RNA sequence: UGGACAUCUACUUUUAUUCAGUUUCUUCUUAAGGUGAAGAAAACUGCUUGUAAGUGUCCUAGAGAAACACAGUAGCCUUCUGUUCACCUUUUGCAAGUGAAAAGGAUAGACUGUUCCACUACUGACAUAU
Numbered sequence: 001u002g003g004a005c006a007u008c009u010a011c012u013u014u015u016a017u018u019c020a021g022u023u024u025c026u027u028c029u030u031a032a033g034g035u036g037a038a039g040a041a042a043a044c045u046g047c048u049u050g051u052a053a054g055u056g057u058c059c060u061a062g063a064g065a066a067a068c069a070c071a072g073u074a075g076c077c078u079u080c081u082g083u084u085c086a087c088c089u090u091u092u093g094c095a096a097g098u099g100a101a102a103a104g105g106a107u108a109g110a111c112u113g114u115u116c117c118a119c120u121a122c123u124g125a126c127a128u129a130u
Stems, first nucleotide, its partner, number of pairs: 002059006009052003020045004024040005070124006089104004
Dot-bracket structure: .((((((.(((........(((((((((.......))))).))))....))).))))))..........((((((.............((((........))))..............))))))......